[Rfam]
RNA sequence: CUGUUCUUGAGAGAUCAGAGGCGCAGAGUGCAUCAGUGUCAAUGAAACCUGUGCCUUUAACCUCUUAGUGCAU
Numbered sequence: 001c002u003g004u005u006c007u008u009g010a011g012a013g014a015u016c017a018g019a020g021g022c023g024c025a026g027a028g029u030g031c032a033u034c035a036g037u038g039u040c041a042a043u044g045a046a047a048c049c050u051g052u053g054c055c056u057u058u059a060a061c062c063u064c065u066u067a068g069u070g071c072a073u
Base pairs, nucleotide, nucleotide: 002072003071004070006068007067009066010065011064012063013062017058018057019056020055021054022053023052024051025050026049030048033045034044035043